[Rfam]
RNA sequence: CCCAGGGCGUCGCCCUGGGCUGUCCCAUGUCGCACCUUUGGUGCU
Dot-bracket structure: ((((((((...))))))))............(((((...))))).
Numbered sequence: 001c002c003c004a005g006g007g008c009g010u011c012g013c014c015c016u017g018g019g020c021u022g023u024c025c026c027a028u029g030u031c032g033c034a035c036c037u038u039u040g041g042u043g044c045u
Stems, first nucleotide, its partner, number of pairs: 001019008032044005
The record is a 45-nucleotide RNA from Luteolibacter yonseiensis, which matches "Acido-Lenti-1 RNA" in Rfam. Rfam 15.1 lists 2,607 matches to the family in 171 species. By type it is a small RNA. A search with the family's covariance model found it, with a score of 41 bits. NCBI's taxonomy places the organism under Bacteria, Verrucomicrobiota, Verrucomicrobiales, Verrucomicrobiaceae, Luteolibacter.